[Rfam]
RNA sequence: GCCUAGCUCAGUAAUGUGAGCUUGUAACCCAAAUGGGGGCAUUAAUGUGGUGGAAUGUUAGGCAAUCCCAGAUGGUUGGGCUUGGUGGGCUAAUUUCUGGCCUGCCCUGUCCAAGCACCGAGUUGGAUCACGGGGCCUAAUCGAAAGAAUGGGCUUCUUGAUUCCUAAAGAGGGUCGGAUUGCGUAAGGCUGGUUUCACAGAGCAACAAAUAAUUCCCGCUCUGUGCAAUGGAAGGACAACGGGCUAGUGCUGGUCAAGUUCAGUAACGCCUGAUGGGCAGCUCUAAUUAAACCACCACUUUA
Numbered sequence: 001g002c003c004u005a006g007c008u009c010a011g012u013a014a015u016g017u018g019a020g021c022u023u024g025u026a027a028c029c030c031a032a033a034u035g036g037g038g039g040c041a042u043u044a045a046u047g048u049g050g051u052g053g054a055a056u057g058u059u060a061g062g063c064a065a066u067c068c069c070a071g072a073u074g075g076u077u078g079g080g081c082u083u084g085g086u087g088g089g090c091u092a093a094u095u096u097c098u099g100g101c102c103u104g105c106c107c108u109g110u111c112c113a114a115g116c117a118c119c120g121a122g123u124u125g126g127a128u129c130a131c132g133g134g135g136c137c138u139a140a141u142c143g144a145a146a147g148a149a150u151g152g153g154c155u156u157c158u159u160g161a162u163u164c165c166u167a168a169a170g171a172g173g174g175u176c177g178g179a180u181u182g183c184g185u186a187a188g189g190c191u192g193g194u195u196u197c198a199c200a201g202a203g204c205a206a207c208a209a210a211u212a213a214u215u216c217c218c219g220c221u222c223u224g225u226g227c228a229a230u231g232g233a234a235g236g237a238c239a240a241c242g243g244g245c246u247a248g249u250g251c252u253g254g255u256c257a258a259g260u261u262c263a264g265u266a267a268c269g270c271c272u273g274a275u276g277g278g279c280a281g282c283u284c285u286a287a288u289u290a291a292a293c294c295a296c297c298a299c300u301u302u303a
Stems, first nucleotide, its partner, number of pairs: 001040003005022006028037003043303003047299007056290002058287003061283003066278001068277003074271003078262008088252002091250002097248008106236002110233004115227004120222004125164006132157008141148002165170001172217003181210001184207002190201003
Rfam assigns this 303-nucleotide RNA from Capsicum annuum to the family "Plant signal recognition particle RNA". The source organism's lineage runs through Eukaryota, Viridiplantae, Tracheophyta, Gunneridae and Capsicum. The family's consensus secondary structure is taken from published work.